[Rfam]
RNA sequence: UUGCAUUUCCAUUGCAAUAACUGCUAACAUAUAAGAAUUUUUGAAGAAAGAAAAGACAGAAAUACCCAAUAUCUUGCUAGAACAAGAUAUUGGGUAUUUCUGUCUU
Numbered sequence: 001u002u003g004c005a006u007u008u009c010c011a012u013u014g015c016a017a018u019a020a021c022u023g024c025u026a027a028c029a030u031a032u033a034a035g036a037a038u039u040u041u042u043g044a045a046g047a048a049a050g051a052a053a054a055g056a057c058a059g060a061a062a063u064a065c066c067c068a069a070u071a072u073c074u075u076g077c078u079a080g081a082a083c084a085a086g087a088u089a090u091u092g093g094g095u096a097u098u099u100c101u102g103u104c105u106u
Stems, first nucleotide, its partner, number of pairs: 002016004053106013067092003071088005

Plastid-psbA-1 3UTR RNA: a 106-nucleotide RNA sequence from Triticum aestivum. The base pairs follow the family's consensus structure, which was predicted with LocARNA. The family's RNA type in Rfam is cis-regulatory element. The source organism's lineage runs through Eukaryota, Embryophyta, Mesangiospermae, Liliopsida and Triticum. Rfam's curators write: Plastid psbA-1 is a non-coding RNA (ncRNA) present in plastids. It was identified in inverted repeat sequences in the 3 prime untranslate region (3UTR) of photosystem II quinone-binding protein (psbA). Its Rfam clan is "Plastid-psbA 3UTR RNA clan". The match comes from Rfam's covariance-model search (60 bits).